[Rfam]
RNA sequence: CAUAUCAGAAGAUGAAACCUCGAAACAAUCUCAGGACACCUUCUGACACAGUGGCUAGUAGCUAUGUGGGUGAGAAGACAAUUAUUUUCUAAUGAUACU
Numbered sequence: 001c002a003u004a005u006c007a008g009a010a011g012a013u014g015a016a017a018c019c020u021c022g023a024a025a026c027a028a029u030c031u032c033a034g035g036a037c038a039c040c041u042u043c044u045g046a047c048a049c050a051g052u053g054g055c056u057a058g059u060a061g062c063u064a065u066g067u068g069g070g071u072g073a074g075a076a077g078a079c080a081a082u083u084a085u086u087u088u089c090u091a092a093u094g095a096u097a098c099u
Base pairs, nucleotide, nucleotide: 003097004096005095006094007093047053048052

The record is a 99-nucleotide sequence from Sorghum bicolor, which matches "Small nucleolar RNA snoR31/Z110/Z27" in Rfam. On this family, see Chen et al., Nucleic Acids Res 2003: "The high diversity of snoRNAs in plants: identification and comparative study of 120 snoRNA genes from Oryza sativa". From the family's description: This family contains several related snoRNAs including R31, Z27 and Z110. A search with the family's covariance model found it, with a score of 52 bits. Lineage of the source: Eukaryota > Panicoideae > Andropogoneae > Sorghinae > Sorghum. Rfam 15.1 lists 571 matches to the family in 198 species.